[Rfam]
RNA sequence: GUUUGGGUGAUGACUUCAGAACUUGUCGGAUACCCCUUCACUCAUCUAAUGAGUGAGACCAGCAGUCUGACAAAC
Numbered sequence: 001g002u003u004u005g006g007g008u009g010a011u012g013a014c015u016u017c018a019g020a021a022c023u024u025g026u027c028g029g030a031u032a033c034c035c036c037u038u039c040a041c042u043c044a045u046c047u048a049a050u051g052a053g054u055g056a057g058a059c060c061a062g063c064a065g066u067c068u069g070a071c072a073a074a075c
Stems, first nucleotide, its partner, number of pairs: 001075005
Shown here is a 75-nucleotide sequence from Melopsittacus undulatus, a member of the family "Small nucleolar RNA SNORD101". It scores 76 bits against the family's covariance model. The family is grouped with related families in Rfam's "SNORD101 clan". Its family is annotated with RNA processing and nucleolus in the Gene Ontology. NCBI's taxonomy places the organism under Eukaryota, Euteleostomi, Dinosauria, Aves, Melopsittacus.